A member of the RNA family "nrdJ RNA" from Streptomyces sp. TSRI0281, 83 nucleotides long.
The family's consensus secondary structure is taken from published work.
It is annotated as a small RNA.
The source organism's lineage runs through Bacteria, Actinomycetota, Kitasatosporales, Streptomycetaceae and Streptomyces.

RNA sequence: ACCUGUUCGCGGAUGCCGUACGCGGCGUCCGGAGCAUCAGACACACACUGUGUCCCGGGAAGAACUGGGCACUUCAGGGCGUU
Dot-bracket structure: ...(((((.((((((((......))))))))))))).............((((((.(.......).))))))...........
Numbered sequence: 001a002c003c004u005g006u007u008c009g010c011g012g013a014u015g016c017c018g019u020a021c022g023c024g025g026c027g028u029c030c031g032g033a034g035c036a037u038c039a040g041a042c043a044c045a046c047a048c049u050g051u052g053u054c055c056c057g058g059g060a061a062g063a064a065c066u067g068g069g070c071a072c073u074u075c076a077g078g079g080c081g082u083u
Stems, first nucleotide, its partner, number of pairs: 004036005010031008050072006057065001